[Rfam]
RNA sequence: CAACUAUUGGGCGAUGGGGCUCGCCGUCCGUUAACCGCCACUCCUUUGAGAAGGCUGAUAGCUCCUACGAUUAC
Numbered sequence: 001c002a003a004c005u006a007u008u009g010g011g012c013g014a015u016g017g018g019g020c021u022c023g024c025c026g027u028c029c030g031u032u033a034a035c036c037g038c039c040a041c042u043c044c045u046u047u048g049a050g051a052a053g054g055c056u057g058a059u060a061g062c063u064c065c066u067a068c069g070a071u072u073a074c
Stems, first nucleotide, its partner, number of pairs: 010025004016065006037055003
RNA: Fluoride riboswitch aptamer (crcB RNA motif)